Shown here is a 72-nucleotide sequence, a member of the family "sucC RNA". It is annotated as a cis-regulatory element. It scores 75 bits against the family's covariance model.
RNA sequence: GUCACAGGUGGCGCGGCGCCCGAGAGCGCAGCGCCGAAAUGCGCAAUACCUAAACGAAGAACGGUAGAUAAG
Numbered sequence: 001g002u003c004a005c006a007g008g009u010g011g012c013g014c015g016g017c018g019c020c021c022g023a024g025a026g027c028g029c030a031g032c033g034c035c036g037a038a039a040u041g042c043g044c045a046a047u048a049c050c051u052a053a054a055c056g057a058a059g060a061a062c063g064g065u066a067g068a069u070a071a072g
Stems, first nucleotide, its partner, number of pairs: 009036006016029004